RNA sequence: UGACCUCAAAUCAAGUAGGACUACCCGCUGAACUUAAGCAUAUCAAUAAGCGGAGGAAAAGAAACUAACAAGGAUUCCCCUAGUAACUGCGAGUGAAGCGGGAAAAGCUCAAAUUUAAAAUCUGGCGGUUUCACCGUCCGAGUUGUAAUUUAGAGAAGUGUUACCCGUGCUGGACCGUGUACAAGUCUCCUGGAAUGGAGCGUCGUGGAGGGUGAGAAUCCCGUACAUGACACGGACUACCAGGACUUUGUGGUGCGCUCUCGAAGAGUCGAGUUGUUUGGGAAUGCAGCUCAAAAUGGGUGGUAAAUUCCAUCUAAAGCUAAAUAUUGGGGAGAGACCGAUAGCGAACAAGUACCGUGAGGGAAAGAUGAAAAGAACUUUGGAAAGAGAGUUAAACAGUACGUGAAAUUGCUGAAAGGGAAA
Numbered sequence: 001u002g003a004c005c006u007c008a009a010a011u012c013a014a015g016u017a018g019g020a021c022u023a024c025c026c027g028c029u030g031a032a033c034u035u036a037a038g039c040a041u042a043u044c045a046a047u048a049a050g051c052g053g054a055g056g057a058a059a060a061g062a063a064a065c066u067a068a069c070a071a072g073g074a075u076u077c078c079c080c081u082a083g084u085a086a087c088u089g090c091g092a093g094u095g096a097a098g099c100g101g102g103a104a105a106a107g108c109u110c111a112a113a114u115u116u117a118a119a120a121u122c123u124g125g126c127g128g129u130u131u132c133a134c135c136g137u138c139c140g141a142g143u144u145g146u147a148a149u150u151u152a153g154a155g156a157a158g159u160g161u162u163a164c165c166c167g168u169g170c171u172g173g174a175c176c177g178u179g180u181a182c183a184a185g186u187c188u189c190c191u192g193g194a195a196u197g198g199a200g201c202g203u204c205g206u207g208g209a210g211g212g213u214g215a216g217a218a219u220c221c222c223g224u225a226c227a228u229g230a231c232a233c234g235g236a237c238u239a240c241c242a243g244g245a246c247u248u249u250g251u252g253g254u255g256c257g258c259u260c261u262c263g264a265a266g267a268g269u270c271g272a273g274u275u276g277u278u279u280g281g282g283a284a285u286g287c288a289g290c291u292c293a294a295a296a297u298g299g300g301u302g303g304u305a306a307a308u309u310c311c312a313u314c315u316a317a318a319g320c321u322a323a324a325u326a327u328u329g330g331g332g333a334g335a336g337a338c339c340g341a342u343a344g345c346g347a348a349c350a351a352g353u354a355c356c357g358u359g360a361g362g363g364a365a366a367g368a369u370g371a372a373a374a375g376a377a378c379u380u381u382g383g384a385a386a387g388a389g390a391g392u393u394a395a396a397c398a399g400u401a402c403g404u405g406a407a408a409u410u411g412c413u414g415a416a417a418g419g420g421a422a423a
Stems, first nucleotide, its partner, number of pairs: 024055001025053005035042002065072002076103004086094002106321004112150004118144002121141002124138004155262002157259004162255004167246002170243004175235006185201001187200004204208001211221002271292007298315005355362002378389004